[Rfam]
RNA sequence: CAACAUAUUCCCACUGCUCUCAACCGAGACCUCUAUAGGCAGUAUAAUACUUCGUCUCUCAUACCUGUAAGUGAGGGAUUUACAGGAAUAAGUUUCGCAU
Numbered sequence: 001c002a003a004c005a006u007a008u009u010c011c012c013a014c015u016g017c018u019c020u021c022a023a024c025c026g027a028g029a030c031c032u033c034u035a036u037a038g039g040c041a042g043u044a045u046a047a048u049a050c051u052u053c054g055u056c057u058c059u060c061a062u063a064c065c066u067g068u069a070a071g072u073g074a075g076g077g078a079u080u081u082a083c084a085g086g087a088a089u090a091a092g093u094u095u096c097g098c099a100u
Base pairs, nucleotide, nucleotide: 013043014042015041016040017039019038020037026058027057028056029055030054064086065085066084067083068082069081070080
RNA: PhotoRC-II RNA